A member of the RNA family "mir-8834 microRNA precursor family" from Nyctereutes procyonoides, 105 nucleotides long.
Lineage of the source: Eukaryota > Chordata > Amniota > Boreoeutheria > Nyctereutes.
Gene Ontology terms of the family: miRNA-mediated post-transcriptional gene silencing and RISC complex.
Rfam 15.1 lists 13,926 matches to the family in 17 species.
Pairs were carried over by alignment from the consensus structure, which was predicted with RNAalifold.
RNA sequence: AGGAGGAACAACUGCAGUGGCGGGGCCAGCUUUGCAGCCCUGGAGUCAGCUCCUGCAGUAGCUCCAGAGCUCUCCAUCUGCAGGGCUUAGAGGCUCCGGGGCGGG
Number, nucleotide and partner (000 for none) at each position: 001a000002g097003g096004a095005g094006g000007a000008a000009c000010a088011a087012c085013u084014g000015c000016a000017g000018u000019g078020g077021c000022g075023g074024g073025g072026c000027c000028a071029g070030c069031u068032u067033u066034g065035c000036a063037g000038c000039c000040c058041u057042g056043g000044a000045g000046u000047c000048a000049g000050c000051u000052c000053c000054u000055g000056c042057a041058g040059u000060a000061g000062c000063u036064c000065c034066a033067g032068a031069g030070c029071u028072c025073u024074c023075c022076a000077u020078c019079u000080g000081c000082a000083g000084g013085g012086c000087u011088u010089a000090g000091a000092g000093g000094c005095u004096c003097c002098g000099g000100g000101g000102c000103g000104g000105g000